A member of the RNA family "Small nucleolar RNA R38" from Heterocephalus glaber, 76 nucleotides long. Pairs were carried over by alignment from the consensus structure, which was predicted with PFOLD. Rfam describes the family as follows. snoR38 is a C/D box small nucleolar RNA conserved across yeast, human, Arabidopsis and rice. It is encoded in the intron of elongation factor-1 gamma in both pombe and cerevisiae. snoR38 guides the methylation of 2'-O-ribose sites in 28S rRNA. Lineage of the source: Eukaryota > Opisthokonta > Gnathostomata > Eutheria > Heterocephalus.

RNA sequence: UUGAGCUGAGGAUGAUUUAAAGUUAUCCCUGUCUGAAAUGACAUCUUUUGUGGAGUCUUGACUUACUGAGGCUCAA
Number, nucleotide and partner (000 for none) at each position: 001u076002u075003g074004a073005g072006c071007u070008g000009a000010g000011g000012a000013u000014g000015a000016u000017u000018u000019a000020a000021a000022g000023u000024u000025a000026u000027c000028c000029c000030u000031g000032u000033c000034u000035g000036a000037a000038a000039u000040g000041a000042c000043a000044u000045c000046u000047u000048u000049u000050g000051u000052g000053g000054a000055g000056u000057c000058u000059u000060g000061a000062c000063u000064u000065a000066c000067u000068g000069a000070g007071g006072c005073u004074c003075a002076a001